[Rfam]
RNA sequence: GGAUCGGGCCUUUCAGGCAUCCUCUCCUAAAAACUUUCACGGGCCGCUCCUUCAUGGACGCGGCCCUUUUUUUGUCCUCA
Dot-bracket structure: .......((((...)))).......................(((((((((.....))).))))))...............